Rfam assigns this 102-nucleotide RNA from Nisaea acidiphila to the family "Glycine riboswitch aptamer".

[Rfam]
RNA sequence: ACGACCCUCGAGGGAGAGACCGGCCCGCUAUCUGCGACUGGGCCGGCGCCGAAGGAGCAACCGCCCCCGGAAACUCUCAGGCAAAAGGACUUCGAGGCGAGG
Numbered sequence: 001a002c003g004a005c006c007c008u009c010g011a012g013g014g015a016g017a018g019a020c021c022g023g024c025c026c027g028c029u030a031u032c033u034g035c036g037a038c039u040g041g042g043c044c045g046g047c048g049c050c051g052a053a054g055g056a057g058c059a060a061c062c063g064c065c066c067c068c069g070g071a072a073a074c075u076c077u078c079a080g081g082c083a084a085a086a087g088g089a090c091u092u093c094g095a096g097g098c099g100a101g102g
Stems, first nucleotide, its partner, number of pairs: 006097008020046008048082003051078002055076003061069001
Source information
Lineage of the source: Bacteria > Alphaproteobacteria > Rhodospirillales > Thalassobaculaceae > Nisaea. A search with the family's covariance model found it, with a score of 71 bits.